[Rfam]
RNA sequence: AGCCUGUGAUGACACUUGAUAAACUUUUCUGACACCUCGUAUGAACGCUGCUAUGGCAGUACCUGAUUACAUUUAUUCUCUGAGGCUC
Number, nucleotide and partner (000 for none) at each position: 001a087002g086003c085004c084005u000006g000007u000008g000009a000010u000011g000012a000013c000014a000015c000016u000017u000018g000019a000020u000021a000022a000023a000024c000025u000026u000027u000028u000029c000030u000031g000032a000033c000034a000035c000036c000037u000038c000039g000040u000041a000042u000043g000044a000045a000046c000047g060048c059049u058050g057051c056052u000053a000054u000055g000056g051057c050058a049059g048060u047061a000062c000063c000064u000065g000066a000067u000068u000069a000070c000071a000072u000073u000074u000075a000076u000077u000078c000079u000080c000081u000082g000083a000084g004085g003086c002087u001088c000
This 88-nucleotide RNA sequence from Anguilla anguilla belongs to the Rfam family "Small nucleolar RNA SNORD60". Clan: SNORD60 clan. NCBI's taxonomy places the organism under Eukaryota, Metazoa, Gnathostomata, Euteleostomi, Anguilla. Rfam classes the family as a C/D-box small nucleolar RNA.